[Rfam]
Rfam assigns this 167-nucleotide RNA sequence from Piscibacillus halophilus to the family "Lysine riboswitch aptamer". A search with the family's covariance model found it, with a score of 107 bits. Taxonomically the source falls in Piscibacillus (Bacteria, Bacillota, Caryophanales, Bacillaceae).
RNA sequence: CGAUGAGGUAGAGGCGCAACUAACAUGAGUAAUGUGCAUGAGGAUGACAACUAUGACUGUACAUGAAAGGGUUAUUUGCCGAAGCACUUAGUUUCUGUCAGGAAUCAAGUGUUGGUGUAUAUCUGAAUAAGGUAUAUACUCUCGCAAAGCGGGGAGCUACUGAUCGA
Numbered sequence: 001c002g003a004u005g006a007g008g009u010a011g012a013g014g015c016g017c018a019a020c021u022a023a024c025a026u027g028a029g030u031a032a033u034g035u036g037c038a039u040g041a042g043g044a045u046g047a048c049a050a051c052u053a054u055g056a057c058u059g060u061a062c063a064u065g066a067a068a069g070g071g072u073u074a075u076u077u078g079c080c081g082a083a084g085c086a087c088u089u090a091g092u093u094u095c096u097g098u099c100a101g102g103a104a105u106c107a108a109g110u111g112u113u114g115g116u117g118u119a120u121a122u123c124u125g126a127a128u129a130a131g132g133u134a135u136a137u138a139c140u141c142u143c144g145c146a147a148a149g150c151g152g153g154g155a156g157c158u159a160c161u162g163a164u165c166g167a
Stems, first nucleotide, its partner, number of pairs: 007161005016079004021074004032064007083113007091105004114140011142152004